Notes
This 155-nucleotide sequence from Malacoplasma penetrans belongs to the Rfam family "Ribosomal protein L10 leader". This family is a putative r-protein leader autoregulatory structure found in B. subtilis and other low-GC Gram-positive bacteria.
[Rfam]
RNA sequence: UCAUUAUUUAGUAAUAUACUAAAGACAGUAACUGGUGAAUUAACCUUAAUUUGUUACCGAGGUAUACAACAAAUAUUUUAUCUUUAUAAAGUUGUAGAUCUUAACAUAACUUGUCUUUUGUAUUUUUCAAAAGGGCAAGUUAUUUUUGUAUAUUA
Numbered sequence: 001u002c003a004u005u006a007u008u009u010a011g012u013a014a015u016a017u018a019c020u021a022a023a024g025a026c027a028g029u030a031a032c033u034g035g036u037g038a039a040u041u042a043a044c045c046u047u048a049a050u051u052u053g054u055u056a057c058c059g060a061g062g063u064a065u066a067c068a069a070c071a072a073a074u075a076u077u078u079u080a081u082c083u084u085u086a087u088a089a090a091g092u093u094g095u096a097g098a099u100c101u102u103a104a105c106a107u108a109a110c111u112u113g114u115c116u117u118u119u120g121u122a123u124u125u126u127u128c129a130a131a132a133g134g135g136c137a138a139g140u141u142a143u144u145u146u147u148g149u150a151u152a153u154u155a
Base pairs, nucleotide, nucleotide: 028057029056030055031054032053034045035044036043109140110139111138112137113136114135115134116133117132118131
Taxonomically the source falls in Malacoplasma penetrans (Bacteria, Bacillati, Mycoplasmoidales, Mycoplasmoidaceae). It is annotated as a cis-regulatory leader. Pairs were carried over by alignment from the consensus structure, which was predicted with CMfinder.